[Rfam]
RNA: L31-Gammaproteobacteria ribosomal protein leader
Organism: Muribacter muris
RNA sequence: CAUAUGGUGUCAGACAAAAUAGAUGCUCUGAUGGCGAUAUGGCUUCUAAAUGAGGU
Numbered sequence: 001c002a003u004a005u006g007g008u009g010u011c012a013g014a015c016a017a018a019a020u021a022g023a024u025g026c027u028c029u030g031a032u033g034g035c036g037a038u039a040u041g042g043c044u045u046c047u048a049a050a051u052g053a054g055g056u
Stems, first nucleotide, its partner, number of pairs: 001041005007035002011030004015025001